[Rfam]
RNA sequence: AAAAAAGUAAUGACAGGAUUCAGUAGUUUUAUCUCACUGGUAUCAGAGAGCUGAUGGAUGGUGCAAAUCAGUCCAAAGAUAAGAACGAAUUACCUCCUUGAACUUUCUUUGUGAACCUAUGUAGCAGAGAACGGCAGCACCGUUAUUCGAACAAGCGGAAGAGUAAUCUUCAAGUUAGGGUGGUACCGCGUUUUCCACGUCCCUUUU
Numbered sequence: 001a002a003a004a005a006a007g008u009a010a011u012g013a014c015a016g017g018a019u020u021c022a023g024u025a026g027u028u029u030u031a032u033c034u035c036a037c038u039g040g041u042a043u044c045a046g047a048g049a050g051c052u053g054a055u056g057g058a059u060g061g062u063g064c065a066a067a068u069c070a071g072u073c074c075a076a077a078g079a080u081a082a083g084a085a086c087g088a089a090u091u092a093c094c095u096c097c098u099u100g101a102a103c104u105u106u107c108u109u110u111g112u113g114a115a116c117c118u119a120u121g122u123a124g125c126a127g128a129g130a131a132c133g134g135c136a137g138c139a140c141c142g143u144u145a146u147u148c149g150a151a152c153a154a155g156c157g158g159a160a161g162a163g164u165a166a167u168c169u170u171c172a173a174g175u176u177a178g179g180g181u182g183g184u185a186c187c188g189c190g191u192u193u194u195c196c197a198c199g200u201c202c203c204u205u206u207u
Stems, first nucleotide, its partner, number of pairs: 007103002015098004026086005038075003050072006106130007132142003158171005177204004188200004
The record is a 207-nucleotide RNA sequence from Bacillus oleivorans, which matches "T-box leader" in Rfam. The family's RNA type in Rfam is cis-regulatory leader. Uncharged tRNA acts as the effector for transcription antitermination of genes in the T-box leader family. T-boxes are found upstream of many aminoacyl-tRNA synthetase genes and some amino acid biosynthetic genes usually in Gram-positive bacteria. The anticodon of a specific tRNA base pairs to a specifier sequence within the T-box motif, and the NCCA acceptor tail of the tRNA base pairs to a conserved bulge in the T-box antiterminator hairpin. Its family is annotated with tRNA binding in the Gene Ontology.